[Rfam]
Shown here is a 171-nucleotide RNA sequence from Roseateles puraquae, a member of the family "Manganese Mn2+ riboswitch aptamer (yybP-ykoY)".
RNA sequence: CCAACCGUCAUUGGGGAGUAGCCGCUCUUCGCCCGAAGAGGCUGACGUCAACACCUGGCCCGCAGGCCAUGGCGUCAGCAGUUUCUCGACCUGGCAAGACCUUUGACCACUUCGCCUCCGCACUGGCCGGGGAAGCGACGUGGUCAUUCGUCUUGGGACCGGCCGUGGAAC
Numbered sequence: 001c002c003a004a005c006c007g008u009c010a011u012u013g014g015g016g017a018g019u020a021g022c023c024g025c026u027c028u029u030c031g032c033c034c035g036a037a038g039a040g041g042c043u044g045a046c047g048u049c050a051a052c053a054c055c056u057g058g059c060c061c062g063c064a065g066g067c068c069a070u071g072g073c074g075u076c077a078g079c080a081g082u083u084u085c086u087c088g089a090c091c092u093g094g095c096a097a098g099a100c101c102u103u104u105g106a107c108c109a110c111u112u113c114g115c116c117u118c119c120g121c122a123c124u125g126g127c128c129g130g131g132g133a134a135g136c137g138a139c140g141u142g143g144u145c146a147u148u149c150g151u152c153u154u155g156g157g158a159c160c161g162g163c164c165g166u167g168g169a170a171c
Stems, first nucleotide, its partner, number of pairs: 026039003041079010056069005081171005
The match comes from Rfam's covariance-model search (93 bits). Lineage of the source: Bacteria > Pseudomonadati > Burkholderiales > Sphaerotilaceae > Roseateles. This RNA was originally discovered in E. coli during a large scale screen and was named SraF. The family was later found to exist upstream of related families of protein genes in many bacteria, including the the yybP and ykoK genes in B. subtilis. The specific functions of these proteins are unknown, but this structured RNA element may be involved in their genetic regulation as a riboswitch. On this family, see Argaman et al., Curr Biol 2001: "Novel small RNA-encoding genes in the intergenic regions of Escherichia coli". The pairing is the family consensus, mapped onto this sequence.